[Rfam]
RNA: sok antitoxin (CssrC)
Organism: Escherichia coli
RNA sequence: GGGUGCUUGAGGCUGUCUGCCUCGGGCAUGCCACCGUAAGGCAGACAGAGAAAAGCCCCAGUUAACAUUACGCGUCCUGCAAGACGCCUAACAUUAAUCUGAGGCCAAUUUCAUGCUAGACACAUGUAGGUUAGCCUCUUACGCGCCGAAAGGCAAGG
Number, nucleotide and partner (000 for none) at each position: 001g059002g058003g057004u000005g056006c055007u054008u053009g000010a000011g000012g000013c048014u047015g046016u045017c044018u043019g042020c041021c040022u039023c000024g000025g000026g035027c000028a000029u000030g000031c000032c000033a000034c000035c026036g000037u000038a000039a022040g021041g020042c019043a018044g017045a016046c015047a014048g013049a000050g000051a000052a000053a008054a007055g006056c005057c003058c002059c001060a100061g099062u000063u097064a095065a094066c000067a000068u091069u090070a000071c000072g000073c000074g000075u000076c000077c000078u000079g000080c000081a000082a000083g000084a000085c000086g000087c000088c000089u000090a069091a068092c000093a000094u065095u064096a000097a063098u000099c061100u060101g138102a137103g136104g135105c134106c000107a000108a131109u130110u129111u128112c126113a125114u124115g123116c000117u000118a000119g000120a000121c000122a000123c115124a114125u113126g112127u000128a111129g110130g109131u108132u000133a000134g105135c104136c103137u102138c101139u000140u000141a000142c000143g000144c000145g000146c000147c000148g000149a000150a000151a000152g000153g000154c000155a000156a000157g000158g000